[Rfam]
RNA: Guanidine-II riboswitch aptamer (mini-ykkC)
Organism: Opitutaceae bacterium TAV5
RNA sequence: ACGUGAAGACGACUUCACCUCUCCCAACAGAAUUCAGGGACGACCCUG
Dot-bracket structure: (.((((((....)))))).)..............(((((....)))))